[Rfam]
RNA: Plastid-rpl16 group II-D1 intron
Nucleotides: 043
Base pairs, nucleotide, nucleotide: 003037004036006034007033008032010030011029012028
Number, partner (000 for none) and nucleotide at each position: 001000g002000c003037u004036u005000c006034g007033a008032g009000c010030c011029a012028a013000c014000a015000a016000a017000g018000a019000c020000u021000g022000a023000g024000a025000a026000g027000a028012u029011u030010g031000a032008c033007u034006c035000a036004a037003g038000a039000a040000c041000c042000a043000a